Record summary
RT-3 RNA: a 151-nucleotide RNA sequence from Prevotella brunnea.

RNA sequence: AAUCGGUUCCACGGCAAGGAGGGACGUGUCCCUCGAUACCGCACCGAGGAGGACAAGCCACGGCAAAAGCACAUAUAAAGUGGAAAGCCGAAACAUCAAGUGUCGGGUAGAGUUUGGUAGGCCACACCAAGGCUCGAAGAACUCAGGCCCG
Number, nucleotide and partner (000 for none) at each position: 001a000002a000003u047004c046005g045006g044007u043008u000009c000010c000011a000012c041013g040014g039015c000016a037017a000018g000019g034020a033021g032022g031023g030024a000025c000026g000027u000028g000029u000030c023031c022032c021033u020034c019035g000036a000037u016038a000039c014040c013041g012042c000043a007044c006045c005046g004047a003048g000049g059050a000051g000052g000053a000054c000055a000056a000057g000058c000059c049060a000061c090062g089063g088064c087065a000066a000067a000068a000069g000070c082071a081072c080073a000074u078075a000076u000077a000078a074079a000080g072081u071082g070083g000084a000085a000086a000087g064088c063089c062090g061091a000092a000093a000094c000095a000096u000097c000098a000099a000100g000101u000102g000103u000104c151105g150106g149107g148108u147109a000110g144111a143112g142113u141114u140115u139116g000117g000118u000119a000120g134121g133122c132123c131124a000125c000126a000127c000128c000129a000130a000131g123132g122133c121134u120135c000136g000137a000138a000139g115140a114141a113142c112143u111144c110145a000146g000147g108148c107149c106150c105151g104
It is annotated as a small RNA.